The record is a 156-nucleotide sequence from Acidaminococcus fermentans, which matches "glmS glucosamine-6-phosphate activated ribozyme aptamer" in Rfam. A search with the family's covariance model found it, with a score of 70 bits. Rfam's curators write: This entry contains a glucosamine-6-phosphate activated ribozyme that is found in the mRNA for GlmS. GlmS is an enzyme that uses fructose-6-phosphate and glutamine to generate glucosamine-6-phosphate. The family's RNA type in Rfam is riboswitch. Its family is annotated with regulation of gene expression and catalytic activity in the Gene Ontology.
Nucleotides: 156
Stems, first nucleotide, its partner, number of pairs: 021038007048079005057068001059066002080096004101146007115130006
Number, partner (000 for none) and nucleotide at each position: 001000g002000c003000a004000a005000a006000u007000c008000a009000u010000c011000g012000a013000g014000c015000g016000c017000a018000g019000g020000u021038g022037c023036c024035g025034g026033g027032c028000u029000u030000u031000g032027g033026c034025c035024u036023g037022g038021c039000c040000g041000a042000c043000g044000a045000g046000g047000u048079g049078g050077a051076g052075g053000u054000u055000c056000a057068u058000c059066g060065a061000a062000c063000a064000g065060u066059c067000a068057g069000c070000g071000g072000a073000u074000g075052c076051c077050u078049c079048c080096c081095g082094g083093u084000a085000a086000g087000c088000u089000g090000c091000a092000g093083a094082c095081c096080g097000u098000a099000a100000g101146c102145u103144g104143u105142c106141c107140u108000a109000c110000a111000a112000a113000u114000c115130c116129c117128u118127c119126u120125g121000g122000c123000a124000a125120c126119a127118g128117a129116g130115g131000a132000a133000c134000a135000c136000a137000g138000a139000a140107g141106g142105g143104g144103c145102g146101g147000c148000g149000g150000c151000a152000g153000a154000c155000g156000g
Notes: Pairs were carried over by alignment from the consensus structure, which is taken from published work.